[Rfam]
RNA sequence: AUUAAAUAUGGGCAAACUAUUUGAAAAAAUAGGACGCAAAACUAUAGGGACUAAAUACUAGACAUAUGUAUAAGUCUGCCAGUUGCUUUU
Numbered sequence: 001a002u003u004a005a006a007u008a009u010g011g012g013c014a015a016a017c018u019a020u021u022u023g024a025a026a027a028a029a030u031a032g033g034a035c036g037c038a039a040a041a042c043u044a045u046a047g048g049g050a051c052u053a054a055a056u057a058c059u060a061g062a063c064a065u066a067u068g069u070a071u072a073a074g075u076c077u078g079c080c081a082g083u084u085g086c087u088u089u090u
Base pairs, nucleotide, nucleotide: 012037013036017032018031019030020029021028022027040084041083042082043081047080048079049076050075051074056070057069058068